[Rfam]
RNA sequence: GAGUGCUUACAACUCUUUUGAAAUUUGUCUAGUAGGUCUUCCGGUUUUUACCGGAAGGUCCCC
Numbered sequence: 001g002a003g004u005g006c007u008u009a010c011a012a013c014u015c016u017u018u019u020g021a022a023a024u025u026u027g028u029c030u031a032g033u034a035g036g037u038c039u040u041c042c043g044g045u046u047u048u049u050a051c052c053g054g055a056a057g058g059u060c061c062c063c
Stems, first nucleotide, its partner, number of pairs: 035060011
Dot-bracket structure: ..................................(((((((((((....)))))))))))...

Annotation: The record is a 63-nucleotide RNA sequence from Molossus molossus, which matches "U7 small nuclear RNA" in Rfam. NCBI's taxonomy places the organism under Eukaryota, Vertebrata, Euteleostomi, Theria, Molossus. The base pairs follow the family's consensus structure, which was predicted with PFOLD.